A member of the RNA family "FMN riboswitch aptamer (RFN element)" from Corynebacterium glutamicum, 164 nucleotides long. The family's consensus secondary structure is taken from published work.
RNA sequence: UUUUGUUCUCAGGGCGGGGCGAAAUUCCCCACCGGCGGUAAGACGAAUCAUCAGAUAUGACUAGUUGAGCCCGCGAGCGCCACCAACUAGCAAUGGUUUGUGGGUCAGCAGAUCCGGUUAAAUUCCGGAGCCGACGGUCAUAGUCCGGAUGCAAGAGAACCGUG
Numbered sequence: 001u002u003u004u005g006u007u008c009u010c011a012g013g014g015c016g017g018g019g020c021g022a023a024a025u026u027c028c029c030c031a032c033c034g035g036c037g038g039u040a041a042g043a044c045g046a047a048u049c050a051u052c053a054g055a056u057a058u059g060a061c062u063a064g065u066u067g068a069g070c071c072c073g074c075g076a077g078c079g080c081c082a083c084c085a086a087c088u089a090g091c092a093a094u095g096g097u098u099u100g101u102g103g104g105u106c107a108g109c110a111g112a113u114c115c116g117g118u119u120a121a122a123u124u125c126c127g128g129a130g131c132c133g134a135c136g137g138u139c140a141u142a143g144u145c146c147g148g149a150u151g152c153a154a155g156a157g158a159a160c161c162g163u164g
Stems, first nucleotide, its partner, number of pairs: 003162001005160006017029003031144002033133002035074004069131002077109002113129005135147003

Its family is annotated with FMN binding in the Gene Ontology. The match comes from Rfam's covariance-model search (108 bits). The source organism's lineage runs through Bacteria, Bacillati, Actinomycetota, Corynebacterium and Corynebacterium glutamicum.